[Rfam]
RNA: MIR2617 microRNA precursor family
Organism: Medicago truncatula
RNA sequence: UUGAAGUGUAGCAUACCCGUUUGGUGAAAUACUCUGAUGAUUAUUGUUUUCUAUUUACUUUUGGGUAACGGGGUGUUACAGUUGC
Numbered sequence: 001u002u003g004a005a006g007u008g009u010a011g012c013a014u015a016c017c018c019g020u021u022u023g024g025u026g027a028a029a030u031a032c033u034c035u036g037a038u039g040a041u042u043a044u045u046g047u048u049u050u051c052u053a054u055u056u057a058c059u060u061u062u063g064g065g066u067a068a069c070g071g072g073g074u075g076u077u078a079c080a081g082u083u084g085c
Stems, first nucleotide, its partner, number of pairs: 004083002007080008016072006